[Rfam]
RNA: ZMP/ZTP riboswitch aptamer (pfl RNA motif)
Organism: Sphaerisporangium melleum
RNA sequence: GAAACGCGACGUGACUGGCGCGUCUGGGUGGGCCACCACCGGGGAGCGAAGAGGUCGGGGGCCGGGCGCCUGGGUCUCCGCG
Number, nucleotide and partner (000 for none) at each position: 001g000002a000003a055004a000005c053006g000007c051008g000009a000010c048011g047012u046013g000014a000015c043016u042017g070018g069019c068020g067021c066022g000023u000024c000025u000026g000027g000028g039029u038030g037031g036032g000033c000034c000035a000036c031037c030038a029039c028040c000041g000042g016043g015044g000045a000046g012047c011048g010049a000050a000051g007052a000053g005054g000055u003056c000057g000058g000059g077060g076061g075062c074063c073064g000065g000066g021067c020068g019069c018070c017071u000072g000073g063074g062075u061076c060077u059078c000079c000080g000081c000082g000